Rfam assigns this 146-nucleotide RNA from Sciurus vulgaris to the family "Small nucleolar RNA SNORA48".
It is annotated as an H/ACA-box small nucleolar RNA.
Rfam 15.1 lists 2,109 matches to the family in 150 species.
Rfam describes the family as follows. The snoRNA ACA 48 has been identified to guide pseudouridylation of the residue U3797 in the 28S rRNA subunit.
RNA sequence: UGCCCCCCUGGCAAUGGGCAAAGAGACACCUCAAUGGUGGUGUUGCUCUUAUAUCAGUAAGGGGCAGAGUAGAACACAGUCCUUUGUUCAUCCUAGCUUGAUGCCUGUGUUGGUGGCCAGAGCUAUUUCAUGCCUAGGGCACAUAA
Numbered sequence: 001u002g003c004c005c006c007c008c009u010g011g012c013a014a015u016g017g018g019c020a021a022a023g024a025g026a027c028a029c030c031u032c033a034a035u036g037g038u039g040g041u042g043u044u045g046c047u048c049u050u051a052u053a054u055c056a057g058u059a060a061g062g063g064g065c066a067g068a069g070u071a072g073a074a075c076a077c078a079g080u081c082c083u084u085u086g087u088u089c090a091u092c093c094u095a096g097c098u099u100g101a102u103g104c105c106u107g108u109g110u111u112g113g114u115g116g117c118c119a120g121a122g123c124u125a126u127u128u129c130a131u132g133c134c135u136a137g138g139g140c141a142c143a144u145a146a
Stems, first nucleotide, its partner, number of pairs: 001066004007062003015056003021050003025044006085141005100134001102132001106130002111125002114122001